Background: A member of the RNA family "mir-236 microRNA precursor family" from Halicephalobus sp. NKZ332, 76 nucleotides long.

RNA sequence: AGCUAUCGUUUUACCUGUGCAAUAUUAGAUUGAUCCAAAAAUGAUUUUCUAAUACUGUCAGGUAAUGACGAUCGCU
Number, nucleotide and partner (000 for none) at each position: 001a076002g075003c074004u000005a072006u071007c070008g069009u068010u067011u065012u064013a063014c062015c061016u060017g059018u000019g000020c057021a056022a000023u054024a053025u052026u051027a050028g049029a048030u000031u000032g000033a000034u000035c000036c000037a000038a000039a000040a000041a000042u000043g000044a000045u000046u000047u000048u029049c028050u027051a026052a025053u024054a023055c000056u021057g020058u000059c017060a016061g015062g014063u013064a012065a011066u000067g010068a009069c008070g007071a006072u005073c000074g003075c002076u001
Pairs were carried over by alignment from the consensus structure, which was predicted with RNAalifold. Gene Ontology terms of the family: RISC complex and miRNA-mediated post-transcriptional gene silencing.